[Rfam]
RNA sequence: GGGGAUGAUCGGUUUCGACAGCGAAUGUCGUACCAGGGGAAGCGAGCCGAGGAACGCGGCAAUGAUCUCGUUAACCAUGUGCCGCAAAAAAAUAAUCGCCAACCAGAAGCGCGAUUCGUUCGCGCUCGCUGCCUGAGCAGCGAGCAUGAACUGUCAGCCCGGGAAAGUUCCCGGCCCGGUGUCUGGCAUCAUUCAGGGAACUCCACCGUAACUCCCGGUCACGGGGGGUUGCGGGAAACCACACAGUGACUGAGCCCGUCGGAGACUUGUCCGCGUGAUCUCCGGGGCCGAGAAAAGCGAAGCGGACUGCGCUCGGAGAAGCCCUGUUUCGGGUUCGUUGGACGCGGGUUCGAUUCCCGCCAUCUCCACCU
Numbered sequence: 001g002g003g004g005a006u007g008a009u010c011g012g013u014u015u016c017g018a019c020a021g022c023g024a025a026u027g028u029c030g031u032a033c034c035a036g037g038g039g040a041a042g043c044g045a046g047c048c049g050a051g052g053a054a055c056g057c058g059g060c061a062a063u064g065a066u067c068u069c070g071u072u073a074a075c076c077a078u079g080u081g082c083c084g085c086a087a088a089a090a091a092a093u094a095a096u097c098g099c100c101a102a103c104c105a106g107a108a109g110c111g112c113g114a115u116u117c118g119u120u121c122g123c124g125c126u127c128g129c130u131g132c133c134u135g136a137g138c139a140g141c142g143a144g145c146a147u148g149a150a151c152u153g154u155c156a157g158c159c160c161g162g163g164a165a166a167g168u169u170c171c172c173g174g175c176c177c178g179g180u181g182u183c184u185g186g187c188a189u190c191a192u193u194c195a196g197g198g199a200a201c202u203c204c205a206c207c208g209u210a211a212c213u214c215c216c217g218g219u220c221a222c223g224g225g226g227g228g229u230u231g232c233g234g235g236a237a238a239c240c241a242c243a244c245a246g247u248g249a250c251u252g253a254g255c256c257c258g259u260c261g262g263a264g265a266c267u268u269g270u271c272c273g274c275g276u277g278a279u280c281u282c283c284g285g286g287g288c289c290g291a292g293a294a295a296a297g298c299g300a301a302g303c304g305g306a307c308u309g310c311g312c313u314c315g316g317a318g319a320a321g322c323c324c325u326g327u328u329u330c331g332g333g334u335u336c337g338u339u340g341g342a343c344g345c346g347g348g349u350u351c352g353a354u355u356c357c358c359g360c361c362a363u364c365u366c367c368a369c370c371u
Base pairs, nucleotide, nucleotide: 001367002366003365004364005363006362007361019340020339021338022337023336024335025334026333028331030330032328034326035325036324037323038322043315044314045313046312047311048070049069050068051067052066056085057084058083059082060081061080124145125144126143127142128141129140130139131138132137152188153187154186155185156184157183159179160178163175167201168200169199170198171197172196206234207233208232209231210230211229212228217251218250219249220248221247222246254288255287256286257285260284261283262282264280265279269307270306271305272304276300344360345359346358347357348356